[Rfam]
RNA: mir-219 microRNA precursor family
Organism: Anopheles sinensis
RNA sequence: UCUAGCUCUGAUUGUCCAAACGCAAUUCUUGUUGAUACCUUUGCUAUUCAAGAGUUGUGACUGGACAUCCGUGGCUCGA
Numbered sequence: 001u002c003u004a005g006c007u008c009u010g011a012u013u014g015u016c017c018a019a020a021c022g023c024a025a026u027u028c029u030u031g032u033u034g035a036u037a038c039c040u041u042u043g044c045u046a047u048u049c050a051a052g053a054g055u056u057g058u059g060a061c062u063g064g065a066c067a068u069c070c071g072u073g074g075c076u077c078g079a
Stems, first nucleotide, its partner, number of pairs: 002078001004076004010069003014066005021059011